This 167-nucleotide RNA from Cohnella sp. AR92 belongs to the Rfam family "c-di-AMP riboswitch aptamer (ydaO/yuaA leader)".
RNA sequence: AAUCCGUCAUCGCUGAGUCUCCGCCAAAGAAGGAGAUCGGGGGAACCAAUCGCGGCGGGCCAUGGGCCGCGCGGGGUGAAUCGGAGCCGGCACGGCCGUAUUCCGUAGGGCGACUCUAAUCGCCCGAAUCCGUCAGCUAACCUCGUAAGCGUCUUUAGAGAGGGUGA
Dot-bracket structure: ..........((((...(((((.........))))).(((((....(.........................)(((.....((((................))))..((((..........))))...))).........)))))..))))................
NCBI's taxonomy places the organism under Bacteria, Bacilli, Caryophanales, Paenibacillaceae, Cohnella.